The record is a 61-nucleotide RNA from Caenorhabditis brenneri, which matches "mir-228 microRNA precursor family" in Rfam.
RNA sequence: AAUGGCACUGCAUGAAUUCACGGAUGCAUUGCGACAGACCGCGGAUCAUGCGGUACCAUAG
Numbered sequence: 001a002a003u004g005g006c007a008c009u010g011c012a013u014g015a016a017u018u019c020a021c022g023g024a025u026g027c028a029u030u031g032c033g034a035c036a037g038a039c040c041g042c043g044g045a046u047c048a049u050g051c052g053g054u055a056c057c058a059u060a061g
Base pairs, nucleotide, nucleotide: 002059003058004057005056007054008053009052010051011050012049013048014047015046017045018044019043021041022040023039025036026035

Clan: mir-182 clan. NCBI's taxonomy places the organism under Eukaryota, Metazoa, Chromadorea, Rhabditoidea, Caenorhabditis. The sequence is in the family's curated seed alignment. Pairs were carried over by alignment from the consensus structure, which was predicted with RNAalifold.